Rfam assigns this 134-nucleotide RNA sequence from Roseimaritima ulvae to the family "Group II catalytic intron D1-D4-3". The family has 406 seed sequences and 4,274 matches in Rfam 15.1. Pairs were carried over by alignment from the consensus structure.

[Rfam]
RNA sequence: UCGUCAAGACCUGCCAGGCUUCGAACAGAAACCUCUUAUGGGGCCGACGACUCCAGGCGAGCGGGCUGCUGACGGCGAAGCCGAACCGGAAAACGGAGCGGAGGUAGGUGAGGAGCUUGGGCAGGGACAGAUCA
Numbered sequence: 001u002c003g004u005c006a007a008g009a010c011c012u013g014c015c016a017g018g019c020u021u022c023g024a025a026c027a028g029a030a031a032c033c034u035c036u037u038a039u040g041g042g043g044c045c046g047a048c049g050a051c052u053c054c055a056g057g058c059g060a061g062c063g064g065g066c067u068g069c070u071g072a073c074g075g076c077g078a079a080g081c082c083g084a085a086c087c088g089g090a091a092a093a094c095g096g097a098g099c100g101g102a103g104g105u106a107g108g109u110g111a112g113g114a115g116c117u118u119g120g121g122c123a124g125g126g127a128c129a130g131a132u133c134a
Stems, first nucleotide, its partner, number of pairs: 001134001004131002010125006016118005032113004037108001043105003048100002051098004056082003061076002064073001

Background
It scores 52 bits against the family's covariance model.